The record is a 116-nucleotide sequence from Clostridium sp. DL-VIII, which matches "FMN riboswitch aptamer (RFN element)" in Rfam.
RNA sequence: UAAAAUCUUCGGGGUUGGGUGAAAUUCCCUAUCGGCGGUACAGCCCGCGAGCUAUAAUUAGCAGAUUCGGUUAAAUUCCGAAGCCGACAGUAAAGUCUGGAUGAAAGAAGAUAGUG
Numbered sequence: 001u002a003a004a005a006u007c008u009u010c011g012g013g014g015u016u017g018g019g020u021g022a023a024a025u026u027c028c029c030u031a032u033c034g035g036c037g038g039u040a041c042a043g044c045c046c047g048c049g050a051g052c053u054a055u056a057a058u059u060a061g062c063a064g065a066u067u068c069g070g071u072u073a074a075a076u077u078c079c080g081a082a083g084c085c086g087a088c089a090g091u092a093a094a095g096u097c098u099g100g101a102u103g104a105a106a107g108a109a110g111a112u113a114g115u116g
Stems, first nucleotide, its partner, number of pairs: 005112006017029003031096002033086002035048004043084002051062003066082005088099003
A search with the family's covariance model found it, with a score of 118 bits.